[Rfam]
RNA sequence: GGGUCAAUGAUGAAAACUCAUAUUACCUCAAAGAGAGAUGAUGACCUAAAAAUUAUGCUCAACAGGAUUACACUGAGACCC
Numbered sequence: 001g002g003g004u005c006a007a008u009g010a011u012g013a014a015a016a017c018u019c020a021u022a023u024u025a026c027c028u029c030a031a032a033g034a035g036a037g038a039u040g041a042u043g044a045c046c047u048a049a050a051a052a053u054u055a056u057g058c059u060c061a062a063c064a065g066g067a068u069u070a071c072a073c074u075g076a077g078a079c080c081c
Stems, first nucleotide, its partner, number of pairs: 001081004005075002008072002
Record summary
Shown here is an 81-nucleotide RNA from Callorhinus ursinus, a member of the family "Small nucleolar RNA SNORD115". Taxonomically the source falls in Callorhinus (Eukaryota, Teleostomi, Tetrapoda, Boreoeutheria). Its family is annotated with nucleolus and RNA processing in the Gene Ontology.